This 85-nucleotide sequence from Acanthaster planci belongs to the Rfam family "mir-31 microRNA precursor family". On this family, see Aravin et al., Dev Cell 2003: "The small RNA profile during Drosophila melanogaster development". Clan: mir-31 microRNA precursor family.
RNA sequence: CAGUGUCAGAGAGGCAAGAUGUUGGCAUAGCUGUGUGCAAUGACCACCUUUCAGCUGUGCCUACAUACUGCCAUUUUGUCGCUUG
Numbered sequence: 001c002a003g004u005g006u007c008a009g010a011g012a013g014g015c016a017a018g019a020u021g022u023u024g025g026c027a028u029a030g031c032u033g034u035g036u037g038c039a040a041u042g043a044c045c046a047c048c049u050u051u052c053a054g055c056u057g058u059g060c061c062u063a064c065a066u067a068c069u070g071c072c073a074u075u076u077u078g079u080c081g082c083u084u085g
Base pairs, nucleotide, nucleotide: 005080007078008077009076010075011074013072014071015070016069019066020065021064024061025060026059027058028057029056030055031054